[Rfam]
RNA: glmS glucosamine-6-phosphate activated ribozyme aptamer
RNA sequence: UAAACCCCAAAAGCGCCUGAACUAAGGAGUUGCCUUAGUUGACGAGGAGGAGGAGUAUCGAUCGUUCGGCGGAUACCUCCCGACUGAUAUCGCGCAGUCGAAUGGGUCAUUUUAAAACAUAGAGGUAACUUUAUGCACAAAGAAUGGACUCACGCGAAA
Numbered sequence: 001u002a003a004a005c006c007c008c009a010a011a012a013g014c015g016c017c018u019g020a021a022c023u024a025a026g027g028a029g030u031u032g033c034c035u036u037a038g039u040u041g042a043c044g045a046g047g048a049g050g051a052g053g054a055g056u057a058u059c060g061a062u063c064g065u066u067c068g069g070c071g072g073a074u075a076c077c078u079c080c081c082g083a084c085u086g087a088u089a090u091c092g093c094g095c096a097g098u099c100g101a102a103u104g105g106g107u108c109a110u111u112u113u114a115a116a117a118c119a120u121a122g123a124g125g126u127a128a129c130u131u132u133a134u135g136c137a138c139a140a141a142g143a144a145u146g147g148a149c150u151c152a153c154g155c156g157a158a159a
Stems, first nucleotide, its partner, number of pairs: 020040008049080005058069004081100006105150002107147004118135007